The family of this 99-nucleotide RNA from Peptacetobacter hominis is "Clostridioides difficile sRNA included into helicase gene". NCBI's taxonomy places the organism under Bacteria, Bacillota, Clostridia, Peptostreptococcaceae, Peptacetobacter.
[Rfam]
RNA sequence: GAUGAUGAGAAAAAAGAACAACAGAUUGAAGAGGAAAGAAGGCUUAUGUAUGUGGGAAUUACAAGAGCCAGAAAGAGUGUAUGUGUAAGUUCUCCUAAA
Numbered sequence: 001g002a003u004g005a006u007g008a009g010a011a012a013a014a015a016g017a018a019c020a021a022c023a024g025a026u027u028g029a030a031g032a033g034g035a036a037a038g039a040a041g042g043c044u045u046a047u048g049u050a051u052g053u054g055g056g057a058a059u060u061a062c063a064a065g066a067g068c069c070a071g072a073a074a075g076a077g078u079g080u081a082u083g084u085g086u087a088a089g090u091u092c093u094c095c096u097a098a099a
Base pairs, nucleotide, nucleotide: 004096007095008093009092010091021053022052023051029045030044031043055090060085061084062083063082066080069077